[Rfam]
RNA sequence: GAUCCUAUUUAGCGAUAAAUAGCUGAAUUAAGAGAAGUCAGCAGAUGUUAUAGUCCCCAUCCUCUAAAUGGGGAAGGAC
Numbered sequence: 001g002a003u004c005c006u007a008u009u010u011a012g013c014g015a016u017a018a019a020u021a022g023c024u025g026a027a028u029u030a031a032g033a034g035a036a037g038u039c040a041g042c043a044g045a046u047g048u049u050a051u052a053g054u055c056c057c058c059a060u061c062c063u064c065u066a067a068a069u070g071g072g073g074a075a076g077g078a079c
Base pairs, nucleotide, nucleotide: 002024005022006021007020008019009018010017011016037046038045039044047079048078049077056072057071058070059069060068

The family of this 79-nucleotide RNA sequence from Bacillus sp. B1-b2 is "Group II catalytic intron D1-D4-1".
The organism belongs to Bacillus, within Bacteria.
On this family, see Lehmann and Schmidt, Crit Rev Biochem Mol Biol 2003: "Group II introns: structure and catalytic versatility of large natural ribozymes".